[Rfam]
RNA sequence: GGCCCAAAUUUGAAGUAGAGUAGAUUAGAAAGAUCACCUGACUCUUCUAAACUACACUUAUUCAAUCUUGUGCCC
Numbered sequence: 001g002g003c004c005c006a007a008a009u010u011u012g013a014a015g016u017a018g019a020g021u022a023g024a025u026u027a028g029a030a031a032g033a034u035c036a037c038c039u040g041a042c043u044c045u046u047c048u049a050a051a052c053u054a055c056a057c058u059u060a061u062u063c064a065a066u067c068u069u070g071u072g073c074c075c
Stems, first nucleotide, its partner, number of pairs: 001074003005070003011064004017058002020055004025050006032043001034041002

This 75-nucleotide RNA sequence from Haemonchus placei belongs to the Rfam family "mir-5928 microRNA precursor family".